[Rfam]
RNA sequence: AAACGUGCAUGGAUACCGCUGUAGAGAUUAAAGGCUUUCGCUCUAUGCCCACAAAAUGCACGAAUAUAAAAUUUCAAAUGUUCUUCGAUGAGCCUGGCCGUUUAAGCUUCGAAUCAGGAACAGAUACGGAACAUACAAUU
Numbered sequence: 001a002a003a004c005g006u007g008c009a010u011g012g013a014u015a016c017c018g019c020u021g022u023a024g025a026g027a028u029u030a031a032a033g034g035c036u037u038u039c040g041c042u043c044u045a046u047g048c049c050c051a052c053a054a055a056a057u058g059c060a061c062g063a064a065u066a067u068a069a070a071a072u073u074u075c076a077a078a079u080g081u082u083c084u085u086c087g088a089u090g091a092g093c094c095u096g097g098c099c100g101u102u103u104a105a106g107c108u109u110c111g112a113a114u115c116a117g118g119a120a121c122a123g124a125u126a127c128g129g130a131a132c133a134u135a136c137a138a139u140u
Stems, first nucleotide, its partner, number of pairs: 004062007018049001020047007030036001078134007089122002093118005099111002

Annotation: This 140-nucleotide sequence from Drosophila takahashii belongs to the Rfam family "Drosophila small cajal body-specific RNA PsiU2-35.45". A reference for the family is Deryusheva and Gall (2013), "Novel small Cajal-body-specific RNAs identified in Drosophila: probing guide RNA function", RNA. Rfam's curators put it in the seed alignment. Lineage of the source: Eukaryota > Mandibulata > Panorpida > Muscomorpha > Sophophora. The family's consensus secondary structure was predicted with RNAfold.